[Rfam]
RNA sequence: GAGUGUGGAGAAGGCAAGAUGUUGGCAUAGCUGUGUGAUACCAAUUUUUUCAGCUGUGCUCACAUACUGCCAUUUAUGCACUUG
Numbered sequence: 001g002a003g004u005g006u007g008g009a010g011a012a013g014g015c016a017a018g019a020u021g022u023u024g025g026c027a028u029a030g031c032u033g034u035g036u037g038a039u040a041c042c043a044a045u046u047u048u049u050u051c052a053g054c055u056g057u058g059c060u061c062a063c064a065u066a067c068u069g070c071c072a073u074u075u076a077u078g079c080a081c082u083u084g
Stems, first nucleotide, its partner, number of pairs: 005079003009075003013071004019065003024060008

The family of this 84-nucleotide RNA sequence from Acanthaster planci is "mir-31 microRNA precursor family". For this family Rfam cites "The small RNA profile during Drosophila melanogaster development" (Aravin et al., Dev Cell, 2003). Taxonomically the source falls in Acanthaster (Eukaryota, Opisthokonta, Eleutherozoa, Valvatida). The match comes from Rfam's covariance-model search (60 bits). Its family is annotated with gene silencing by miRNA and RISC complex in the Gene Ontology.